[Rfam]
RNA sequence: GUGGUGGACUGGGGGAGCCGGGGAGCCGGCUGAGAGGAAACAAACUGCUGUUUCGACCCCUGGAACCUGAUCCAGGUCAUACUGGCGAAGGAAAGUCGAUUCCAAUACUU
Numbered sequence: 001g002u003g004g005u006g007g008a009c010u011g012g013g014g015g016a017g018c019c020g021g022g023g024a025g026c027c028g029g030c031u032g033a034g035a036g037g038a039a040a041c042a043a044a045c046u047g048c049u050g051u052u053u054c055g056a057c058c059c060c061u062g063g064a065a066c067c068u069g070a071u072c073c074a075g076g077u078c079a080u081a082c083u084g085g086c087g088a089a090g091g092a093a094a095g096u097c098g099a100u101u102c103c104a105a106u107a108c109u110u
Stems, first nucleotide, its partner, number of pairs: 007097004011060004017030005037054005066091003072085004
Shown here is a 110-nucleotide sequence from Desulfotignum phosphitoxidans, a member of the family "TPP riboswitch aptamer (THI element)". A search with the family's covariance model found it, with a score of 74 bits. Pairs were carried over by alignment from the consensus structure, which is taken from published work. From the family's description: Vitamin B(1) in its active form thiamin pyrophosphate (TPP) is an essential coenzyme that is synthesised by coupling of pyrimidine and thiazole moieties in bacteria. The organism belongs to Desulfotignum phosphitoxidans, within Bacteria.